Notes: Shown here is a 101-nucleotide sequence from Anaeromassilibacillus sp. An200, a member of the family "ZMP/ZTP riboswitch aptamer (pfl RNA motif)". Pairs were carried over by alignment from the consensus structure, which is taken from published work.

RNA sequence: AAAAGGCCCCAUUACUGACGGAACCCGGCCAAGGCCGGAAUGGUGGAUGGACCACCGGGGAAUGGGUCGCCUGUGAAACGCCGACCGUCUGGGCAGCAUCC
Dot-bracket structure: .....(.(((((..(([[[[[.....................((((.....))))..))..))))).)...........(((..]]]]]..))).......
Background: It scores 51 bits against the family's covariance model.